The record is an 83-nucleotide RNA from Microcella putealis, which matches "ZMP/ZTP riboswitch aptamer (pfl RNA motif)" in Rfam. Pairs were carried over by alignment from the consensus structure, which is taken from published work. The match comes from Rfam's covariance-model search (57 bits).
Nucleotides: 083
Base pairs, nucleotide, nucleotide: 006049008047009046010045011044012043015040016039017071018070019069020068021067025036026035027034028033060078061077062076063075064074
Number, partner (000 for none) and nucleotide at each position: 001000g002000g003000g004000c005000g006049c007000u008047g009046u010045c011044g012043c013000g014000a015040c016039u017071g018070g019069c020068g021067u022000u023000g024000g025036a026035u027034g028033g029000g030000u031000c032000a033028c034027c035026a036025u037000c038000a039016g040015g041000g042000a043012g044011c045010g046009a047008c048000c049006g050000a051000c052000a053000c054000g055000g056000u057000g058000a059000g060078g061077g062076g063075c064074c065000g066000u067021a068020c069019g070018c071017c072000u073000g074064g075063g076062c077061c078060u079000c080000g081000a082000g083000c